[Rfam]
RNA sequence: CCACGGACUGAAGUCCGCGGCUACAUUCGGCCAUCCCUGCGGGAUU
Numbered sequence: 001c002c003a004c005g006g007a008c009u010g011a012a013g014u015c016c017g018c019g020g021c022u023a024c025a026u027u028c029g030g031c032c033a034u035c036c037c038u039g040c041g042g043g044a045u046u
Stems, first nucleotide, its partner, number of pairs: 001020002004017005033045005
Rfam assigns this 46-nucleotide RNA from Gracilimonas mengyeensis to the family "Acido-Lenti-1 RNA".
The family's consensus secondary structure is taken from published work.
The source organism's lineage runs through Bacteria, Pseudomonadati, Balneolia, Balneolaceae and Gracilimonas.